[Rfam]
RNA sequence: CCACCAUCGAGACCGGCAGAGGGACAGGCCCUUUGAAGCCGGGGCAGCCAGCGACCCAGUCCAGCGUGUCGUGUCGGUGCCAAAUCCUGCGGCGACGCGUUUGCGUUUUGACCGAAAGAUGGUUC
Numbered sequence: 001c002c003a004c005c006a007u008c009g010a011g012a013c014c015g016g017c018a019g020a021g022g023g024a025c026a027g028g029c030c031c032u033u034u035g036a037a038g039c040c041g042g043g044g045c046a047g048c049c050a051g052c053g054a055c056c057c058a059g060u061c062c063a064g065c066g067u068g069u070c071g072u073g074u075c076g077g078u079g080c081c082a083a084a085u086c087c088u089g090c091g092g093c094g095a096c097g098c099g100u101u102u103g104c105g106u107u108u109u110g111a112c113c114g115a116a117a118g119a120u121g122g123u124u125c
Stems, first nucleotide, its partner, number of pairs: 003123006013042005021031003025089004043081004048077002051072005085117001090114003
Shown here is a 125-nucleotide RNA from Pseudoxanthomonas spadix, a member of the family "SAM riboswitch aptamer (S box leader)". The match comes from Rfam's covariance-model search (66 bits). NCBI's taxonomy places the organism under Bacteria, Pseudomonadati, Pseudomonadota, Pseudoxanthomonas, Pseudoxanthomonas spadix.